Overview
A member of the RNA family "TPP riboswitch aptamer (THI element)" from Roseovarius aestuarii, 106 nucleotides long. The source organism's lineage runs through Bacteria, Pseudomonadati, Alphaproteobacteria, Roseobacteraceae and Roseovarius. Pairs were carried over by alignment from the consensus structure, which is taken from published work.
[Rfam]
RNA sequence: GGCCCUACCUCGGGGUGCGUGGGCGACCGCGCUGAGAUGCCUGAUUGGCGAACCCGUUGAACCUGAACCGGCUAGAACCGGCGGAGGGAAGGCAAGCGGUUUCAUC
Numbered sequence: 001g002g003c004c005c006u007a008c009c010u011c012g013g014g015g016u017g018c019g020u021g022g023g024c025g026a027c028c029g030c031g032c033u034g035a036g037a038u039g040c041c042u043g044a045u046u047g048g049c050g051a052a053c054c055c056g057u058u059g060a061a062c063c064u065g066a067a068c069c070g071g072c073u074a075g076a077a078c079c080g081g082c083g084g085a086g087g088g089a090a091g092g093c094a095a096g097c098g099g100u101u102u103c104a105u106c
Base pairs, nucleotide, nucleotide: 006094008092009091010090011056012055013054014053016050017032018031019030020029021028039049040048041047062087063086064085068081069080070079071078